RNA sequence: GGAGCCAUAGGGAGGGAUAACAAUCCAGCCUUAGGAAAAGAAACCUGCCAUGGAAGUCUUCGAGAUUGUCAACUGUCCUAAUGACUUA
Numbered sequence: 001g002g003a004g005c006c007a008u009a010g011g012g013a014g015g016g017a018u019a020a021c022a023a024u025c026c027a028g029c030c031u032u033a034g035g036a037a038a039a040g041a042a043a044c045c046u047g048c049c050a051u052g053g054a055a056g057u058c059u060u061c062g063a064g065a066u067u068g069u070c071a072a073c074u075g076u077c078c079u080a081a082u083g084a085c086u087u088a
Stems, first nucleotide, its partner, number of pairs: 002087003006083003010079004015074002018071001020069006029062001038060004045053003
Rfam assigns this 88-nucleotide RNA sequence from Equus asinus to the family "mir-9014 microRNA precursor family". Lineage of the source: Eukaryota > Opisthokonta > Bilateria > Dipnotetrapodomorpha > Equus. The match comes from Rfam's covariance-model search (88 bits). Its family is annotated with RISC complex and miRNA-mediated post-transcriptional gene silencing in the Gene Ontology.